The family of this 137-nucleotide sequence from Drosophila kikkawai is "Drosophila small cajal body-specific RNA PsiU2-38.40.4". Pairs were carried over by alignment from the consensus structure, which was predicted with RNAfold. Its family is annotated with nucleolus, RNA processing and Cajal body in the Gene Ontology. For this family Rfam cites "Novel small Cajal-body-specific RNAs identified in Drosophila: probing guide RNA function" (Deryusheva and Gall, RNA, 2013).
RNA sequence: GUGGCAGCAACAAGAAAGUGCUUGAGUUAAUUGAGUCUAGUUAAGCGCUGAUACAAUGCUGCCAGAGAAAUCUCAUAACCAAGAACAGUUCAGUUUGGUUAAAGUCUAUAAACUGAUCUACACGUGGUUUAACAUAU
Dot-bracket structure: ...((((((.......(((((((((..((........)).))))))))).......))))))...............((((.....((.((((((((...........)))))))).)).....)))).........